Shown here is a 123-nucleotide RNA sequence, a member of the family "LOOT RNA".
RNA sequence: GGCCUAACCCUCGUAAUUUAAUCUGCGAGGUAUGGCGUAAAAACCUGUUGAAAAUACUGAACUCCACGUUCAGCAAUCUUUCAACAGGUCAUAUCGGGAAACCGGUAUGGAGCCGCAAGGCUC
Numbered sequence: 001g002g003c004c005u006a007a008c009c010c011u012c013g014u015a016a017u018u019u020a021a022u023c024u025g026c027g028a029g030g031u032a033u034g035g036c037g038u039a040a041a042a043a044c045c046u047g048u049u050g051a052a053a054a055u056a057c058u059g060a061a062c063u064c065c066a067c068g069u070u071c072a073g074c075a076a077u078c079u080u081u082c083a084a085c086a087g088g089u090c091a092u093a094u095c096g097g098g099a100a101a102c103c104g105g106u107a108u109g110g111a112g113c114c115g116c117a118a119g120g121c122u123c
Base pairs, nucleotide, nucleotide: 002036003035004034009030010029011028012027013026014025015024044088045087046086047085048084049083050082051081052080053079055075057073058072059071060070061069062068090109091108092107093106094105095104096103097102110123111122112121113120114119